[Rfam]
RNA sequence: AUAACCUGAGAUCUUGUUAAAAUGCAGACUCUGAUUCAGUAGGUCUGGUGGAGCCUGGAUUCUGCAUUUCUAACAAGCUCUCAGGUGAUGCUGC
Numbered sequence: 001a002u003a004a005c006c007u008g009a010g011a012u013c014u015u016g017u018u019a020a021a022a023u024g025c026a027g028a029c030u031c032u033g034a035u036u037c038a039g040u041a042g043g044u045c046u047g048g049u050g051g052a053g054c055c056u057g058g059a060u061u062c063u064g065c066a067u068u069u070c071u072a073a074c075a076a077g078c079u080c081u082c083a084g085g086u087g088a089u090g091c092u093g094c
Base pairs, nucleotide, nucleotide: 004086005085009081010080011079013077014076015075016074017073018072019071020069021068022067024065025064026063027062028061030059031058032057

This 94-nucleotide sequence from Phocoena sinus belongs to the Rfam family "mir-544 microRNA precursor family". A search with the family's covariance model found it, with a score of 71 bits. Its family is annotated with miRNA-mediated post-transcriptional gene silencing and RISC complex in the Gene Ontology. A reference for the family is Chiang et al. (2010), "Mammalian microRNAs: experimental evaluation of novel and previously annotated genes", Genes Dev. Rfam 15.1 lists 10,750 matches to the family in 132 species.